[Rfam]
RNA: c-di-GMP-I riboswitch aptamer
Organism: Niallia taxi
RNA sequence: AAGUGAAAAGGGCAAAUCAUAGGAAACUAUGAGACGCAAAGCUAUGGGCCUAAAAUAUACUGCUUUUAGAGCAGAUGUUAUGGCAGCCGGUUACCACA
Numbered sequence: 001a002a003g004u005g006a007a008a009a010g011g012g013c014a015a016a017u018c019a020u021a022g023g024a025a026a027c028u029a030u031g032a033g034a035c036g037c038a039a040a041g042c043u044a045u046g047g048g049c050c051u052a053a054a055a056u057a058u059a060c061u062g063c064u065u066u067u068a069g070a071g072c073a074g075a076u077g078u079u080a081u082g083g084c085a086g087c088c089g090g091u092u093a094c095c096a097c098a
Stems, first nucleotide, its partner, number of pairs: 012037002017032006040092004046088002048084003055078004